[Rfam]
This 79-nucleotide RNA sequence from Chironomus riparius belongs to the Rfam family "mir-190 microRNA precursor family".
RNA sequence: GUUACGUUAAGAUAUGUUUGAUAUUCUUGGUUGUUGCAUUGUAUCAUCACCCAGGAAUCAAACAUAUUAUUAAUGUGAU
Numbered sequence: 001g002u003u004a005c006g007u008u009a010a011g012a013u014a015u016g017u018u019u020g021a022u023a024u025u026c027u028u029g030g031u032u033g034u035u036g037c038a039u040u041g042u043a044u045c046a047u048c049a050c051c052c053a054g055g056a057a058u059c060a061a062a063c064a065u066a067u068u069a070u071u072a073a074u075g076u077g078a079u
Base pairs, nucleotide, nucleotide: 005075006074007073008072009071011068012067013066014065015064016063017062018061019060020059021058022057024055025054029052030051032049033048
Rfam links the family to the GO terms RISC complex and miRNA-mediated post-transcriptional gene silencing. The literature on the family includes a 2006 paper in Nucleic Acids Res by Kloosterman et al., "Cloning and expression of new microRNAs from zebrafish". Clan: mir-50 clan. Lineage of the source: Eukaryota > Protostomia > Neoptera > Nematocera > Chironomus. A search with the family's covariance model found it, with a score of 73 bits.